[Rfam]
RNA sequence: CUCUUAUCAUGAGAGGUGGAGGGACUGGGCCCGAUGAAACCCGGCAACCGUCAACGAUUUUUGUUGAAAUGGUGCCAAUUCCUACAAAGCUUUUUGCUUUGGCAGAUGAGAG
Numbered sequence: 001c002u003c004u005u006a007u008c009a010u011g012a013g014a015g016g017u018g019g020a021g022g023g024a025c026u027g028g029g030c031c032c033g034a035u036g037a038a039a040c041c042c043g044g045c046a047a048c049c050g051u052c053a054a055c056g057a058u059u060u061u062u063g064u065u066g067a068a069a070u071g072g073u074g075c076c077a078a079u080u081c082c083u084a085c086a087a088a089g090c091u092u093u094u095u096g097c098u099u100u101g102g103c104a105g106a107u108g109a110g111a112g
Base pairs, nucleotide, nucleotide: 001112002111003110004109005108006107007106008105013042015041016040017039021032022031023030026084027083028082029081043076044075045074046073048072049071051067052066053065054064055063080104085101086100087099088098089097090096